About this RNA: Shown here is a 106-nucleotide sequence from Flavobacterium arcticum, a member of the family "SAM riboswitch aptamer (S box leader)". The organism belongs to Flavobacterium, within Bacteria. The family's consensus secondary structure is taken from published work.

Nucleotides: 106
Stems, first nucleotide, its partner, number of pairs: 002105007013043005021032003026081004044073004049069002051065004077098001082095002085092002
Number, partner (000 for none) and nucleotide at each position: 001000a002105u003104g004103u005102u006101a007100u008099c009000a010000c011000g012000a013043a014042a015041g016040g017039c018000a019000g020000a021032g022031g023030g024000a025000a026081u027080a028079g029078a030023c031022c032021c033000g034000a035000u036000g037000a038000a039017g040016c041015c042014u043013u044073a045072g046071c047070a048000a049069c050068c051065c052064u053063u054062u055000a056000a057000c058000u059000u060000u061000u062054a063053a064052a065051g066000a067000a068050g069049g070047u071046g072045c073044u074000a075000a076000a077098u078029u079028c080027u081026a082095c083094c084000a085092c086091a087000g088000u089000a090000a091086u092085g093000c094083g095082g096000a097000u098077a099008g100007a101006u102005a103004a104003c105002a106000c